[Rfam]
RNA sequence: GCGUGGGUCGGCCCACUGCGAUGGAACCAGUGGGCUGGGGGACACUGCCGCCUCAUUCCCCGCAGGCGGUGGACCGGUCCGGGAGGCGUCGGAACGCCUCCCGGACCGUG
Number, nucleotide and partner (000 for none) at each position: 001g109002c108003g000004u000005g000006g075007g074008u073009c037010g036011g035012c034013c033014c032015a031016c030017u029018g028019c000020g000021a000022u000023g000024g000025a000026a000027c000028c018029a017030g016031u015032g014033g013034g012035c011036u010037g009038g043039g000040g000041g000042a000043c038044a000045c072046u071047g070048c069049c068050g067051c066052c065053u064054c000055a000056u000057u000058c000059c000060c000061c000062g000063c000064a053065g052066g051067c050068g049069g048070u047071g046072g045073a008074c007075c006076g107077g106078u105079c104080c103081g102082g101083g100084a099085g098086g097087c096088g095089u000090c000091g000092g000093a000094a000095c088096g087097c086098c085099u084100c083101c082102c081103g080104g079105a078106c077107c076108g002109u001110g000
Shown here is a 110-nucleotide sequence, a member of the family "Streptomyces RNA 4115". A search with the family's covariance model found it, with a score of 104 bits. Rfam classes the family as a small RNA. A reference for the family is Vockenhuber et al. (2011), "Deep sequencing-based identification of small non-coding RNAs in Streptomyces coelicolor", RNA Biol.